[Rfam]
Annotation: The record is a 155-nucleotide RNA from Erinaceus europaeus, which matches "Small nucleolar RNA SNORA12" in Rfam. The family's consensus secondary structure was predicted with RNAalifold. Rfam links the family to the GO terms RNA processing and nucleolus. The family's RNA type in Rfam is H/ACA-box small nucleolar RNA. Rfam 15.1 lists 571 matches to the family in 378 species.
RNA sequence: GCUUGUGGUAGUUCUCCUCCUGGCACAUUUGUUAAGUUUUCAGAUGGGCUUGACUCUAUCGCAUACAUUAUUUAGGAGCUGGCAAAGGCUUGAUGACAAAGAGAUCCCUCAUCUCUCUCUUGCCUUCCCCUUAUCAGACAUUGGCUCCUACAGAA
Numbered sequence: 001g002c003u004u005g006u007g008g009u010a011g012u013u014c015u016c017c018u019c020c021u022g023g024c025a026c027a028u029u030u031g032u033u034a035a036g037u038u039u040u041c042a043g044a045u046g047g048g049c050u051u052g053a054c055u056c057u058a059u060c061g062c063a064u065a066c067a068u069u070a071u072u073u074a075g076g077a078g079c080u081g082g083c084a085a086a087g088g089c090u091u092g093a094u095g096a097c098a099a100a101g102a103g104a105u106c107c108c109u110c111a112u113c114u115c116u117c118u119c120u121u122g123c124c125u126u127c128c129c130c131u132u133a134u135c136a137g138a139c140a141u142u143g144g145c146u147c148c149u150a151c152a153g154a155a
Base pairs, nucleotide, nucleotide: 005062006061007060008059009058010057011056022050023049024048026046027045028044029043030042031041075148076147077146078145079144080143081090082089083088114140116138117137118136